[Rfam]
RNA sequence: UAGAUGACAAAUACGUUGCCUCAUAUAAUAGCGGGGAUAUGGCCUGCAAGUUUCUACCCGAUUACCGUAAAUGAUCGGACUAUGGGGAAAGCACAUUUUAUC
Numbered sequence: 001u002a003g004a005u006g007a008c009a010a011a012u013a014c015g016u017u018g019c020c021u022c023a024u025a026u027a028a029u030a031g032c033g034g035g036g037a038u039a040u041g042g043c044c045u046g047c048a049a050g051u052u053u054c055u056a057c058c059c060g061a062u063u064a065c066c067g068u069a070a071a072u073g074a075u076c077g078g079a080c081u082a083u084g085g086g087g088a089a090a091g092c093a094c095a096u097u098u099u100a101u102c
Stems, first nucleotide, its partner, number of pairs: 019087007029049001031047005058078007
Dot-bracket structure: ..................(((((((...(.(((((.......))))).)........(((((((.......)))))))..)))))))...............
The record is a 102-nucleotide RNA sequence from Bacillus sp. PK3_68, which matches "Purine riboswitch aptamer" in Rfam. Rfam links the family to the GO term purine nucleobase biosynthetic process. It scores 86 bits against the family's covariance model. Pairs were carried over by alignment from the consensus structure, which is taken from published work.